[Rfam]
RNA sequence: UGACAUGUUAUUCAGCAAAUAGACACAACUCACUGUGUGCCUGAAUUGAAGAAUGUGGCUAGAAAAGGAACAGAUUGUGCUUUCCUCACUGCAUAGUUAGUUGCAGUGGUGACAAUGAGACCUGUAACAGGU
Numbered sequence: 001u002g003a004c005a006u007g008u009u010a011u012u013c014a015g016c017a018a019a020u021a022g023a024c025a026c027a028a029c030u031c032a033c034u035g036u037g038u039g040c041c042u043g044a045a046u047u048g049a050a051g052a053a054u055g056u057g058g059c060u061a062g063a064a065a066a067g068g069a070a071c072a073g074a075u076u077g078u079g080c081u082u083u084c085c086u087c088a089c090u091g092c093a094u095a096g097u098u099a100g101u102u103g104c105a106g107u108g109g110u111g112a113c114a115a116u117g118a119g120a121c122c123u124g125u126a127a128c129a130g131g132u
Stems, first nucleotide, its partner, number of pairs: 002059001004057001006055003021042002024039004070125004084111001086109004

Small nucleolar RNA SNORA1: a 132-nucleotide RNA sequence from Amazona aestiva. About the family: ACA1 is a member of the H/ACA class of snoRNA that guide the sites of modification of uridines to pseudouridines. The organism belongs to Amazona, within Eukaryota. The family's RNA type in Rfam is H/ACA-box small nucleolar RNA. Gene Ontology terms of the family: RNA processing and nucleolus.